[Rfam]
RNA sequence: CAAGCAUGAAUGCUGCUAUUUUCCGCUUCUUUUUUUACUUUAGCACCUGAAUCAGGGAGGCUAGCGCGUGAGAAAAGAAACGAAAAACAGCGCCAGAAAGCCUCCCAGUGGAGGCUUUUUUUGU
Numbered sequence: 001c002a003a004g005c006a007u008g009a010a011u012g013c014u015g016c017u018a019u020u021u022u023c024c025g026c027u028u029c030u031u032u033u034u035u036u037a038c039u040u041u042a043g044c045a046c047c048u049g050a051a052u053c054a055g056g057g058a059g060g061c062u063a064g065c066g067c068g069u070g071a072g073a074a075a076a077g078a079a080a081c082g083a084a085a086a087a088c089a090g091c092g093c094c095a096g097a098a099a100g101c102c103u104c105c106c107a108g109u110g111g112a113g114g115c116u117u118u119u120u121u122u123g124u
Base pairs, nucleotide, nucleotide: 015091016090017089020086021085022084024082025081027079028078029077030076031075032074033073035071036070037069038068041054055065058062097118098117099116100115101114102113103112104111105110